Rfam assigns this 91-nucleotide RNA sequence from Celeribacter neptunius to the family "Rhodo-rpoB RNA". Pairs were carried over by alignment from the consensus structure, which is taken from published work. By type it is a cis-regulatory element. Lineage of the source: Bacteria > Pseudomonadati > Alphaproteobacteria > Rhodobacterales > Celeribacter.
RNA sequence: UGGUCGGGAGCCCCCUUUGGGACGGGGGCAGGAAUAGACCGAUCCUCUCUGUUUCGUCAGGGCACAGGGUGCGGCGCCCAACGCAUCUUUG
Numbered sequence: 001u002g003g004u005c006g007g008g009a010g011c012c013c014c015c016u017u018u019g020g021g022a023c024g025g026g027g028g029c030a031g032g033a034a035u036a037g038a039c040c041g042a043u044c045c046u047c048u049c050u051g052u053u054u055c056g057u058c059a060g061g062g063c064a065c066a067g068g069g070u071g072c073g074g075c076g077c078c079c080a081a082c083g084c085a086u087c088u089u090u091g
Base pairs, nucleotide, nucleotide: 001041002040003039004038005037010029011028012027014025015024065091066090067089069086070085071084072083073082